This 153-nucleotide RNA sequence from Anabarilius grahami belongs to the Rfam family "U12 minor spliceosomal RNA". By type it is a spliceosomal small nuclear RNA.

RNA sequence: AUGCCUUAAACUGAUGAGUAAGGAAAAUAACGACGCGGGGUGACGCCCGUGUCCUCGCUCAUUCUCGCGAGAGAAAUUUUUGAACGGGUACAGGUCCGUCCGCUGGUGACUCACCUACUUAGUGAGAUGCCUCGAGGAACCAGGAUCUGCCCC
Numbered sequence: 001a002u003g004c005c006u007u008a009a010a011c012u013g014a015u016g017a018g019u020a021a022g023g024a025a026a027a028u029a030a031c032g033a034c035g036c037g038g039g040g041u042g043a044c045g046c047c048c049g050u051g052u053c054c055u056c057g058c059u060c061a062u063u064c065u066c067g068c069g070a071g072a073g074a075a076a077u078u079u080u081u082g083a084a085c086g087g088g089u090a091c092a093g094g095u096c097c098g099u100c101c102g103c104u105g106g107u108g109a110c111u112c113a114c115c116u117a118c119u120u121a122g123u124g125a126g127a128u129g130c131c132u133c134g135a136g137g138a139a140c141c142a143g144g145a146u147c148u149g150c151c152c153c
Base pairs, nucleotide, nucleotide: 004023005022006021007020008019032053033052034051035050036049037048038047039046054071055070056069057068058067086152087151088150089149092148093147094146095145096144097143101137105131106130107129108128110126111125112124113123114122